About this RNA
The record is an 84-nucleotide RNA from Apteryx owenii, which matches "Small nucleolar RNA U2-19" in Rfam. The family's RNA type in Rfam is C/D-box small nucleolar RNA. Its family is annotated with nucleolus and RNA processing in the Gene Ontology. Lineage of the source: Eukaryota > Gnathostomata > Sauropsida > Palaeognathae > Apteryx. Pairs were carried over by alignment from the consensus structure, which is taken from published work.

RNA sequence: GGUCUGUGAUGAGAAAUAGCCAAAUCUGACCACCAGGAGAUAAACUAAUCUUCCAGGUGCUAUGAUUUGUACAAUAUUCUGAGA
Numbered sequence: 001g002g003u004c005u006g007u008g009a010u011g012a013g014a015a016a017u018a019g020c021c022a023a024a025u026c027u028g029a030c031c032a033c034c035a036g037g038a039g040a041u042a043a044a045c046u047a048a049u050c051u052u053c054c055a056g057g058u059g060c061u062a063u064g065a066u067u068u069g070u071a072c073a074a075u076a077u078u079c080u081g082a083g084a
Stems, first nucleotide, its partner, number of pairs: 031059004038051004